[Rfam]
RNA sequence: AUAGUGUAAUUGAAUAAAAUGCGUAUAAUUUUGGGAAUAUGGCCCAAGAGUUUCUACCGGACUACCGUAAAUAGUCUGACUACGCAGAUAAAAGUUAGAAGG
Number, nucleotide and partner (000 for none) at each position: 001a000002u000003a000004g000005u000006g000007u000008a000009a000010u000011u000012g000013a000014a000015u000016a000017a000018a000019a000020u086021g085022c084023g083024u082025a081026u000027a000028a000029u049030u048031u047032u046033g045034g044035g043036a000037a000038u000039a000040u000041g000042g000043c035044c034045c033046a032047a031048g030049a029050g000051u000052u000053u000054c000055u000056a000057c000058c078059g077060g076061a075062c074063u073064a072065c000066c000067g000068u000069a000070a000071a000072u064073a063074g062075u061076c060077u059078g058079a000080c000081u025082a024083c023084g022085c021086a020087g000088a000089u000090a000091a000092a000093a000094g000095u000096u000097a000098g000099a000100a000101g000102g000
RNA: Purine riboswitch aptamer
Organism: Compostibacillus humi